The record is a 158-nucleotide RNA from Ottowia beijingensis, which matches "FMN riboswitch aptamer (RFN element)" in Rfam. Taxonomically the source falls in Ottowia (Bacteria, Pseudomonadati, Pseudomonadota, Betaproteobacteria).
[Rfam]
RNA sequence: AAGCGUUCUCAGGGCGGGGUGAAAGUCCCCACCGGCGGUAUCCGUCCUUGCGGCGGGAGCCCGCGAGCGCUUCGGCCCGCCACCCGGCAGGCCGAAGGUCAGCAGACCGGGUGCGAUGCCAGGGCCGACGGUCACAGUCCGGAUGAAAGAGAGCGUGC
Numbered sequence: 001a002a003g004c005g006u007u008c009u010c011a012g013g014g015c016g017g018g019g020u021g022a023a024a025g026u027c028c029c030c031a032c033c034g035g036c037g038g039u040a041u042c043c044g045u046c047c048u049u050g051c052g053g054c055g056g057g058a059g060c061c062c063g064c065g066a067g068c069g070c071u072u073c074g075g076c077c078c079g080c081c082a083c084c085c086g087g088c089a090g091g092c093c094g095a096a097g098g099u100c101a102g103c104a105g106a107c108c109g110g111g112u113g114c115g116a117u118g119c120c121a122g123g124g125c126c127g128a129c130g131g132u133c134a135c136a137g138u139c140c141g142g143a144u145g146a147a148a149g150a151g152a153g154c155g156u157g158c
Stems, first nucleotide, its partner, number of pairs: 003156008017029003031138002033127002035064004059125002067103002107123002110120002129141003